Description:
Rfam assigns this 66-nucleotide RNA sequence from Stenotrophomonas daejeonensis to the family "Fluoride riboswitch aptamer (crcB RNA motif)". The family's consensus secondary structure is taken from published work. Its family is annotated with positive regulation of gene expression and response to fluoride in the Gene Ontology. Taxonomically the source falls in Stenotrophomonas (Bacteria, Pseudomonadati, Pseudomonadota, Gammaproteobacteria).
RNA sequence: CCGGGCAACGGAGAUGGCAUUCCUCCGCGAACCGCCGCGACAGCGGCUGAUGAUGCCUACGCUUGG
Numbered sequence: 001c002c003g004g005g006c007a008a009c010g011g012a013g014a015u016g017g018c019a020u021u022c023c024u025c026c027g028c029g030a031a032c033c034g035c036c037g038c039g040a041c042a043g044c045g046g047c048u049g050a051u052g053a054u055g056c057c058u059a060c061g062c063u064u065g066g
Base pairs, nucleotide, nucleotide: 010026011025012024013023016057017056018055019054020053021052034047035046036045037044